RNA sequence: GCCACUGUCAGAUAUGUUUGAUAUAUUUGGUGGUAUUUGUAGAUUCACCAAUUAUCAGACAUGUCACAACAGCGGC
Numbered sequence: 001g002c003c004a005c006u007g008u009c010a011g012a013u014a015u016g017u018u019u020g021a022u023a024u025a026u027u028u029g030g031u032g033g034u035a036u037u038u039g040u041a042g043a044u045u046c047a048c049c050a051a052u053u054a055u056c057a058g059a060c061a062u063g064u065c066a067c068a069a070c071a072g073c074g075g076c
Stems, first nucleotide, its partner, number of pairs: 005072004011065013029049005
Record summary
The family of this 76-nucleotide RNA from Candidula unifasciata is "mir-190 microRNA precursor family". For this family Rfam cites "Cloning and expression of new microRNAs from zebrafish" (Kloosterman et al., Nucleic Acids Res, 2006). The match comes from Rfam's covariance-model search (59 bits). Rfam links the family to the GO terms miRNA-mediated post-transcriptional gene silencing and RISC complex. NCBI's taxonomy places the organism under Eukaryota, Opisthokonta, Lophotrochozoa, Heterobranchia, Candidula. Clan: mir-50 clan.